[Rfam]
RNA sequence: GAGCAAUGAUUAAACUCUGUGCUAAUGUGACUGGUUGGGUCCGUCACAACUGACUGAUCUCUUGAUUUAGGUCAUAGCGCACACGAGCUC
Numbered sequence: 001g002a003g004c005a006a007u008g009a010u011u012a013a014a015c016u017c018u019g020u021g022c023u024a025a026u027g028u029g030a031c032u033g034g035u036u037g038g039g040u041c042c043g044u045c046a047c048a049a050c051u052g053a054c055u056g057a058u059c060u061c062u063u064g065a066u067u068u069a070g071g072u073c074a075u076a077g078c079g080c081a082c083a084c085g086a087g088c089u090c
Base pairs, nucleotide, nucleotide: 001090002089003088004087
RNA: small nucleolar RNA snoR114
Organism: Digitaria exilis